Rfam assigns this 152-nucleotide RNA sequence from Terriglobus saanensis to the family "Group II catalytic intron D1-D4-7". The literature on the family includes a 2001 paper in EMBO J by Chu et al., "Control of branch-site choice by a group II intron". Group II introns are found in rRNA, tRNA and mRNA of organelles in fungi, plants and protists, and also in mRNA in bacteria. The organism belongs to Terriglobus saanensis, within Bacteria.

[Rfam]
RNA sequence: CCUGCGGUUCCGUCCGCAGUAGCCUAUCGACAUCGGCGUGGCUGGUAACGGCUGGGUCGAAUAGCUGUCGAGACAACCACUCUCUUUCCUUUGGAUAGGAAGAACUCCGUGAGGCGUUUUUCCGCACUGCAAGCGUCGAAGCGGUGAGAGGG
Dot-bracket structure: .((((((......))))))........((((((((((.((((((....)))))).))))).....)))))..............(.(((...))).)((((.....((....)).....))))..(((((..........))))).......
Numbered sequence: 001c002c003u004g005c006g007g008u009u010c011c012g013u014c015c016g017c018a019g020u021a022g023c024c025u026a027u028c029g030a031c032a033u034c035g036g037c038g039u040g041g042c043u044g045g046u047a048a049c050g051g052c053u054g055g056g057u058c059g060a061a062u063a064g065c066u067g068u069c070g071a072g073a074c075a076a077c078c079a080c081u082c083u084c085u086u087u088c089c090u091u092u093g094g095a096u097a098g099g100a101a102g103a104a105c106u107c108c109g110u111g112a113g114g115c116g117u118u119u120u121u122c123c124g125c126a127c128u129g130c131a132a133g134c135g136u137c138g139a140a141g142c143g144g145u146g147a148g149a150g151g152g
Stems, first nucleotide, its partner, number of pairs: 002019006028070005033060005039054006085097001087095003098123004107114002126145005